Shown here is a 148-nucleotide sequence from Actinoplanes sp. TBRC 11911, a member of the family "c-di-AMP riboswitch aptamer (ydaO/yuaA leader)". A search with the family's covariance model found it, with a score of 64 bits. The source organism's lineage runs through Bacteria, Bacillati, Micromonosporales, Micromonosporaceae and Actinoplanes. From the family's description: This family represents a conserved RNA structure found upstream of the ydaO and yuaA genes in Bacillus subtilis and related genes in other bacteria. The ydaO/yuaA element is thought to act as a genetic 'off' switch for the ydaO and yuaA genes in its native state. It is believed that the element may be triggered during osmotic shock leading to activation of ydaO, a predicted amino acid transporter gene, and members of the yuaA-yubG operon which code for KtrA and KtrB K+ transporters.
RNA sequence: CCGUCGGAAUCCGAACACAAGGCAUGGAGCGGGGGACCCACCAGUUCCUCGGUGCGCUACGGCGCGCCUCGGGGUGAAGCCGCGUCCCCGCGGCCGGACAACCUCAGUCCGAACCCGACAGCUCACCUCGCAGGCGUGGAGGGUAUUC
Numbered sequence: 001c002c003g004u005c006g007g008a009a010u011c012c013g014a015a016c017a018c019a020a021g022g023c024a025u026g027g028a029g030c031g032g033g034g035g036a037c038c039c040a041c042c043a044g045u046u047c048c049u050c051g052g053u054g055c056g057c058u059a060c061g062g063c064g065c066g067c068c069u070c071g072g073g074g075u076g077a078a079g080c081c082g083c084g085u086c087c088c089c090g091c092g093g094c095c096g097g098a099c100a101a102c103c104u105c106a107g108u109c110c111g112a113a114c115c116c117g118a119c120a121g122c123u124c125a126c127c128u129c130g131c132a133g134g135c136g137u138g139g140a141g142g143g144u145a146u147u148c
Base pairs, nucleotide, nucleotide: 002136003135004134005133010028011027012026029131030130031129032128033127034126039071072116073115074114080093081092082091083090096110097109098108099107